[Rfam]
RNA sequence: GUGAAUCGCAGGCAAACCCGGCGCAAGCCGGUGACGCAAAGCUAAAGGGACCCACCGGGUCAGCCAGCUGCCGAC
Dot-bracket structure: ...........((....(((((....)))))....))..((((...(((((((...)))))..))))))......